c-di-GMP-I riboswitch aptamer: a 75-nucleotide RNA from Actinoplanes sp. TBRC 11911.
RNA sequence: AAGCCGAAAGGGCAAACCCGGCGGAAACCGGGGACGCAAAGCCACAGGGCCACCGGGGCCGGCUGGGCUACCGAA
Number, nucleotide and partner (000 for none) at each position: 001a000002a000003g000004c000005c000006g000007a000008a000009a000010g000011g000012g037013c036014a000015a000016a000017c032018c031019c030020g029021g028022c000023g000024g000025a000026a000027a000028c021029c020030g019031g018032g017033g000034a000035c000036g013037c012038a000039a000040a069041g068042c067043c066044a000045c065046a064047g063048g060049g059050c058051c000052a000053c000054c000055g000056g000057g000058g050059c049060c048061g000062g000063c047064u046065g045066g043067g042068c041069u040070a000071c000072c000073g000074a000075a000
Taxonomically the source falls in Actinoplanes (Bacteria, Bacillati, Actinomycetota, Actinomycetes). It scores 56 bits against the family's covariance model. The family's consensus secondary structure is taken from published work. GEMM was predicted in a large-scale screen for bacterial structured RNA regulatory elements.